[Rfam]
RNA sequence: CAAUUGAAUAGGGAACUCAAGGGUGAUUGGCCACCUCCGAUAGAAAGGGGGUGGUAAAGAUGACAGUAUAUGAAGCAUUGAUGUUUGCAGUAACAUUUGCAGGCCUCGUGCUUGCGGUAGCGUCAUCGGACCAAAAAAAAUAAUCCGCCCUUGAGUUGACCACUCGGCGGAUUACCCUACUACUAUUUCGCUGCUGAUUCCCUUGAAGGGACCUAUUGAUUGCUGACCGUCUGGUGUUGGGUGCACCGGGCG
Numbered sequence: 001c002a003a004u005u006g007a008a009u010a011g012g013g014a015a016c017u018c019a020a021g022g023g024u025g026a027u028u029g030g031c032c033a034c035c036u037c038c039g040a041u042a043g044a045a046a047g048g049g050g051g052u053g054g055u056a057a058a059g060a061u062g063a064c065a066g067u068a069u070a071u072g073a074a075g076c077a078u079u080g081a082u083g084u085u086u087g088c089a090g091u092a093a094c095a096u097u098u099g100c101a102g103g104c105c106u107c108g109u110g111c112u113u114g115c116g117g118u119a120g121c122g123u124c125a126u127c128g129g130a131c132c133a134a135a136a137a138a139a140a141u142a143a144u145c146c147g148c149c150c151u152u153g154a155g156u157u158g159a160c161c162a163c164u165c166g167g168c169g170g171a172u173u174a175c176c177c178u179a180c181u182a183c184u185a186u187u188u189c190g191c192u193g194c195u196g197a198u199u200c201c202c203u204u205g206a207a208g209g210g211a212c213c214u215a216u217u218g219a220u221u222g223c224u225g226a227c228c229g230u231c232u233g234g235u236g237u238u239g240g241g242u243g244c245a246c247c248g249g250g251c252g
Stems, first nucleotide, its partner, number of pairs: 001222005007216001011212001012194001014192001016155008025145004031054003035050004062124003067119002075088003098116004166178002198211004228252010
The record is a 252-nucleotide sequence from Planococcus salinus, which matches "BsrG" in Rfam.
The family's consensus secondary structure was predicted with WAR.
On this family, see Saito et al., Gene 2008: "Novel small RNA-encoding genes in the intergenic regions of Bacillus subtilis".
Rfam describes the family as follows. bsrE, bsrG and bsrH pair through intermolecular interactions with antisense sRNAs. They form type I toxin/antitoxin system that includes an mRNA encoding for a short, toxic peptide (bsrE, bsrG and bsrH) and an antitoxin that is comprised of an antisense RNA. bsrG encodes a 39-amino-acid toxin, and the 180 nucleotide antisense sRNA called SR4 acts as the antitoxin (they overlap by 123 nucleotides). SR4 interaction with the 3'UTR of bsrG RNA promotes bsrG degradation and inhibits its translation. BsrG interferes with cell envelope biosynthesis, causes membrane invaginations and delocalisation of the cell wall synthesis and initiates autolysis. bsrE RNA encodes 30 amino-acid toxin peptide. Its antitoxin gene, SR5 overlaps by 112 nucleotides at the 3' end of bsrE. SR5 also overlaps bsrG from nucleotide 163 to 52 (Rfam overlap check). The antitoxin SR5 promotes bsrE degradation but unlike SR4 it does not directly inhibits toxin mRNA translation.
The family's RNA type in Rfam is small RNA.
The match comes from Rfam's covariance-model search (95 bits).